[Rfam]
RNA sequence: GCUGGGCGUCGUGGCGCGCGUCUGUAAACCACGUCCCUGGGUGGCUGAGUUUAGAGGCGCGUUCUCGUGUCGACUUCACGGCUGUGCCGUGGUGUUCUGCUGUGGACCGAACGUCCGUUUCAAGGGCGGCGUCGACAAGGGACGGCGGUCGAAGGGCCGCGAUUCCUGGUCGGUUAAUGAGAGAAGUACAGGCUCAGGCCCUGCAGGGAGCAAGCCAAAUUCUCCGCGCCGUUACAGUGAGCGGUUGGCGUUUGCGAAGCAAGACUGUCGGCAGGGGAAUUAAAAAAAAGCUCACUCAAACUUUU
Numbered sequence: 001g002c003u004g005g006g007c008g009u010c011g012u013g014g015c016g017c018g019c020g021u022c023u024g025u026a027a028a029c030c031a032c033g034u035c036c037c038u039g040g041g042u043g044g045c046u047g048a049g050u051u052u053a054g055a056g057g058c059g060c061g062u063u064c065u066c067g068u069g070u071c072g073a074c075u076u077c078a079c080g081g082c083u084g085u086g087c088c089g090u091g092g093u094g095u096u097c098u099g100c101u102g103u104g105g106a107c108c109g110a111a112c113g114u115c116c117g118u119u120u121c122a123a124g125g126g127c128g129g130c131g132u133c134g135a136c137a138a139g140g141g142a143c144g145g146c147g148g149u150c151g152a153a154g155g156g157c158c159g160c161g162a163u164u165c166c167u168g169g170u171c172g173g174u175u176a177a178u179g180a181g182a183g184a185a186g187u188a189c190a191g192g193c194u195c196a197g198g199c200c201c202u203g204c205a206g207g208g209a210g211c212a213a214g215c216c217a218a219a220u221u222c223u224c225c226g227c228g229c230c231g232u233u234a235c236a237g238u239g240a241g242c243g244g245u246u247g248g249c250g251u252u253u254g255c256g257a258a259g260c261a262a263g264a265c266u267g268u269c270g271g272c273a274g275g276g277g278a279a280u281u282a283a284a285a286a287a288a289a290g291c292u293c294a295c296u297c298a299a300a301c302u303u304u305u
Stems, first nucleotide, its partner, number of pairs: 001045003004023006028042003047303006054296001059293001061291003070284001073281001075279003082276002085273005094265003098261004103256001108254007115244002119241004124235001126232007133172004138167005145160006181224005191216004199208003
The record is a 305-nucleotide sequence from Bursaphelenchus okinawaensis, which matches "Metazoan signal recognition particle RNA" in Rfam.